[Rfam]
RNA: FMN riboswitch aptamer (RFN element)
Organism: Actinomyces sp. HMT897
RNA sequence: AACGUGCUCCGGGGUCGGUGAAAGUCCGAGCCGGCGGUAACAGUCCGCGACCCGGCCACACCACCCCGCCGGGGUGACGUGACCGGCUGAGCCGGUGGAACCCCGGCACCGACGGUGAGAGUCCGGAUGGGAGGAGACACGAG
Numbered sequence: 001a002a003c004g005u006g007c008u009c010c011g012g013g014g015u016c017g018g019u020g021a022a023a024g025u026c027c028g029a030g031c032c033g034g035c036g037g038u039a040a041c042a043g044u045c046c047g048c049g050a051c052c053c054g055g056c057c058a059c060a061c062c063a064c065c066c067c068g069c070c071g072g073g074g075u076g077a078c079g080u081g082a083c084c085g086g087c088u089g090a091g092c093c094g095g096u097g098g099a100a101c102c103c104c105g106g107c108a109c110c111g112a113c114g115g116u117g118a119g120a121g122u123c124c125g126g127a128u129g130g131g132a133g134g135a136g137a138c139a140c141g142a143g
Base pairs, nucleotide, nucleotide: 003141004140005139006138007136008135009134010133016028017027018026030122031121032111033110034048035047036046037045043109044108052086053085054084055083091107092106093105094104095103113125114124115123